Small nucleolar RNA R32/R81/Z41: a 90-nucleotide sequence from Coffea canephora. The family's RNA type in Rfam is C/D-box small nucleolar RNA. For this family Rfam cites "Identification of 66 box C/D snoRNAs in Arabidopsis thaliana: extensive gene duplications generated multiple isoforms predicting new ribosomal RNA 2'-O-methylation sites" (Barneche et al., J Mol Biol, 2001).

[Rfam]
RNA sequence: GGAUGAAUAUGAUGAAAGCAAUAAAAGGUAUUGAUGAAAUUUCUUCAUUUUAUUUAUAAUAGUCUUUGCUACGUUCUUUCUUAUUCAUUC
Number, nucleotide and partner (000 for none) at each position: 001g000002g000003a000004u087005g086006a085007a084008u000009a000010u000011g000012a000013u000014g000015a000016a000017a000018g000019c000020a000021a000022u000023a000024a000025a000026a000027g000028g000029u000030a000031u000032u000033g000034a000035u000036g000037a000038a000039a000040u000041u000042u000043c000044u000045u000046c000047a000048u000049u000050u000051u000052a000053u000054u000055u000056a000057u000058a000059a000060u000061a000062g000063u000064c000065u000066u000067u000068g000069c000070u000071a000072c000073g000074u000075u000076c000077u000078u000079u000080c000081u000082u000083a000084u007085u006086c005087a004088u000089u000090c000